The record is a 75-nucleotide sequence from Lupinus albus, which matches "Plastid-ycf2 5UTR RNA" in Rfam. Plastid ycf2 is a non-coding RNA (ncRNA) recognised in plastids.
[Rfam]
RNA sequence: GUGGAAACAGUAGGAAUUGAAUCUACGAAUUCGCCAAUUAUGAGUUGGAUGCUUUAACCAUUCAGCCAUGGAUGC
Numbered sequence: 001g002u003g004g005a006a007a008c009a010g011u012a013g014g015a016a017u018u019g020a021a022u023c024u025a026c027g028a029a030u031u032c033g034c035c036a037a038u039u040a041u042g043a044g045u046u047g048g049a050u051g052c053u054u055u056a057a058c059c060a061u062u063c064a065g066c067c068a069u070g071g072a073u074g075c
Base pairs, nucleotide, nucleotide: 003075005073008070010026011025012024013023014022040069041068042067044066045065046064047063048062049061050060051059